Overview: Antizyme RNA frameshifting stimulation element: a 56-nucleotide RNA from Crocuta crocuta. The organism belongs to Crocuta, within Eukaryota.
RNA sequence: UGGUGACCCUCAACUACUAUUGAAGAUCCUCAGUUGGUGAGGGGGAGGCAGGAAUC
Numbered sequence: 001u002g003g004u005g006a007c008c009c010u011c012a013a014c015u016a017c018u019a020u021u022g023a024a025g026a027u028c029c030u031c032a033g034u035u036g037g038u039g040a041g042g043g044g045g046a047g048g049c050a051g052g053a054a055u056c
Stems, first nucleotide, its partner, number of pairs: 007043005014036001016034003025056003029052002
Overview
Pairs were carried over by alignment from the consensus structure, which is taken from published work. About the family: This family represents a structural element which is found in antizyme mRNA and is known to promote frameshifting. Antizyme genes have have two partially overlapping open reading frames, the second, which encodes the functional protein requires +1 translational frameshifting. This frameshift is stimulated by a pseudoknot present 3' of the frameshift site in the antizyme mRNA. The frameshifting efficiency is dependent on the level of polyamines in the cell, when the polyamine concentration is high frameshifting is more likely to occur which leads to an increase in the quantity of functional antizyme produced. The functional antizyme acts to reduce ornithine decarboxylase (ODC) activity which leads to a drop in polyamines present in the cell. Gene Ontology term of the family: translational frameshifting.